Shown here is a 170-nucleotide sequence from Parazoarcus communis, a member of the family "Manganese Mn2+ riboswitch aptamer (yybP-ykoY)". The pairing is the family consensus, mapped onto this sequence. About the family: This RNA was originally discovered in E. coli during a large scale screen and was named SraF. The family was later found to exist upstream of related families of protein genes in many bacteria, including the the yybP and ykoK genes in B. subtilis. The specific functions of these proteins are unknown, but this structured RNA element may be involved in their genetic regulation as a riboswitch. A search with the family's covariance model found it, with a score of 111 bits. Lineage of the source: Bacteria > Pseudomonadati > Pseudomonadota > Rhodocyclales > Parazoarcus.

RNA sequence: CGUCCCGUCAUUGGGGAGUAGCCUCCUUUCAUACGAAAGGGCCUGCGUCAACAUACUUGGCCGUCCGGCCAUGGCGCAGGCGGUUUCCCAGCUUGGCAAGACCUUUGACCACCACCUUCGGACUUGGCCGGAAAGGUGAGUGGUCAUUCGUCUUUUCCGGCCAGGAGACC
Numbered sequence: 001c002g003u004c005c006c007g008u009c010a011u012u013g014g015g016g017a018g019u020a021g022c023c024u025c026c027u028u029u030c031a032u033a034c035g036a037a038a039g040g041g042c043c044u045g046c047g048u049c050a051a052c053a054u055a056c057u058u059g060g061c062c063g064u065c066c067g068g069c070c071a072u073g074g075c076g077c078a079g080g081c082g083g084u085u086u087c088c089c090a091g092c093u094u095g096g097c098a099a100g101a102c103c104u105u106u107g108a109c110c111a112c113c114a115c116c117u118u119c120g121g122a123c124u125u126g127g128c129c130g131g132a133a134a135g136g137u138g139a140g141u142g143g144u145c146a147u148u149c150g151u152c153u154u155u156u157c158c159g160g161c162c163a164g165g166a167g168a169c170c
Stems, first nucleotide, its partner, number of pairs: 026039003041081010058071005082170006